[Rfam]
RNA sequence: GUUCAUCCAUGGGUGGGGAUUGAGUGCAUUGCUUGUGUUAUGUAUAAAGUAUUGCACUUGUCCCGGCCUAUGGAAGAAAG
Numbered sequence: 001g002u003u004c005a006u007c008c009a010u011g012g013g014u015g016g017g018g019a020u021u022g023a024g025u026g027c028a029u030u031g032c033u034u035g036u037g038u039u040a041u042g043u044a045u046a047a048a049g050u051a052u053u054g055c056a057c058u059u060g061u062c063c064c065g066g067c068c069u070a071u072g073g074a075a076g077a078a079a080g
Base pairs, nucleotide, nucleotide: 004076006074009071010070011069012068013067014066016064017063018062019061020060022058026055027054028053030051031050032049033048034047
Notes
Shown here is an 80-nucleotide sequence from Loxodonta africana, a member of the family "mir-92 microRNA precursor family". Its Rfam clan is "mir-92 microRNA precursor clan". Rfam's curators put it in the seed alignment. The literature on the family includes a 2003 paper in Dev Cell by Houbaviy et al., "Embryonic stem cell-specific MicroRNAs". The organism belongs to Loxodonta, within Eukaryota. Rfam's curators write: This family represents the microRNA precursor mir-92. Human miR-92 has two predicted hairpin precursor sequences: mir-92-1 on chromosome 13 and mir-92-2 on chromosome X. miR-92 has also been cloned from mouse embryonic stem cells. The mature sequence is excised from the 3' arm of the hairpin.